[Rfam]
SAM riboswitch aptamer (S box leader): a 113-nucleotide RNA sequence from Alkalicoccus halolimnae. Taxonomically the source falls in Alkalicoccus (Bacteria, Bacillati, Bacilli, Bacillaceae).

RNA sequence: CUCUUAUCCCGAGCUGGCGGAGGGACAGGCCCUGAGAAGCCCGGCAACCAUCAUUUGUUUUCCAGAGAUGAACGGUGCCAACCUGCAAGACAUUUCGUCUUGACCGAUAAGAG
Numbered sequence: 001c002u003c004u005u006a007u008c009c010c011g012a013g014c015u016g017g018c019g020g021a022g023g024g025a026c027a028g029g030c031c032c033u034g035a036g037a038a039g040c041c042c043g044g045c046a047a048c049c050a051u052c053a054u055u056u057g058u059u060u061u062c063c064a065g066a067g068a069u070g071a072a073c074g075g076u077g078c079c080a081a082c083c084u085g086c087a088a089g090a091c092a093u094u095u096c097g098u099c100u101u102g103a104c105c106g107a108u109a110a111g112a113g
Base pairs, nucleotide, nucleotide: 001113002112003111004110005109006108007107008106013042016041017040018039022032023031024030026085027084028083029082043079044078045077046076048075049074051071052070053069054068055067056066086102087101088100089099090098091097
About the family: The SAM riboswitch is found upstream of a number of genes which code for proteins involved in methionine or cysteine biosynthesis in Gram-positive bacteria.